[Rfam]
RNA sequence: GUAAGAAUGGAAGUCUCCUGAAAAUGGAGAUCGUGAG
Numbered sequence: 001g002u003a004a005g006a007a008u009g010g011a012a013g014u015c016u017c018c019u020g021a022a023a024a025u026g027g028a029g030a031u032c033g034u035g036a037g
Stems, first nucleotide, its partner, number of pairs: 015029004
RNA: CRISPR RNA direct repeat element
Organism: Archaeoglobus fulgidus